This 72-nucleotide RNA sequence from Hibiscus syriacus belongs to the Rfam family "Small nucleolar RNA Z105". A search with the family's covariance model found it, with a score of 50 bits. The family's RNA type in Rfam is C/D-box small nucleolar RNA. Lineage of the source: Eukaryota > Streptophytina > Tracheophyta > Mesangiospermae > Hibiscus. A reference for the family is Chen et al. (2003), "The high diversity of snoRNAs in plants: identification and comparative study of 120 snoRNA genes from Oryza sativa", Nucleic Acids Res.
RNA sequence: GCAUAGUGAGGAUGAAUUUAUUCAAACACUAUCUGAUUAUCAUGAUGAUCUAUAACCUCCUACUCAUUCUGA
Numbered sequence: 001g002c003a004u005a006g007u008g009a010g011g012a013u014g015a016a017u018u019u020a021u022u023c024a025a026a027c028a029c030u031a032u033c034u035g036a037u038u039a040u041c042a043u044g045a046u047g048a049u050c051u052a053u054a055a056c057c058u059c060c061u062a063c064u065c066a067u068u069c070u071g072a
Stems, first nucleotide, its partner, number of pairs: 006067004030047001033044001